RNA sequence: CUCUGUUCCAGAUGGUUCAGGGCGGGAG
Numbered sequence: 001c002u003c004u005g006u007u008c009c010a011g012a013u014g015g016u017u018c019a020g021g022g023c024g025g026g027a028g
Stems, first nucleotide, its partner, number of pairs: 001022005008015002
RNA: L31-Firmicutes ribosomal protein leader